RNA sequence: UGGUGGGACACCCCUCCCCAACGAGGGGCAUAUAUCUGUAAGGGUAAAAUAA
Numbered sequence: 001u002g003g004u005g006g007g008a009c010a011c012c013c014c015u016c017c018c019c020a021a022c023g024a025g026g027g028g029c030a031u032a033u034a035u036c037u038g039u040a041a042g043g044g045u046a047a048a049a050u051a052a
Stems, first nucleotide, its partner, number of pairs: 011028006033046005
Dot-bracket structure: ..........((((((......))))))....(((((....)))))......
This 52-nucleotide RNA sequence belongs to the Rfam family "serC leader".
The base pairs follow the family's consensus structure.
The family's RNA type in Rfam is cis-regulatory leader.
Rfam's curators put it in the seed alignment.
Rfam describes the family as follows. This family is a putative regulatory RNA structure that is found upstream of the serC-serA operon in some alpha-proteobacteria. The final stem of the structure overlaps the ribosome binding site of the serC reading frame.
For this family Rfam cites "Evidence for a second class of S-adenosylmethionine riboswitches and other regulatory RNA motifs in alpha-proteobacteria" (Corbino et al., Genome Biol, 2005).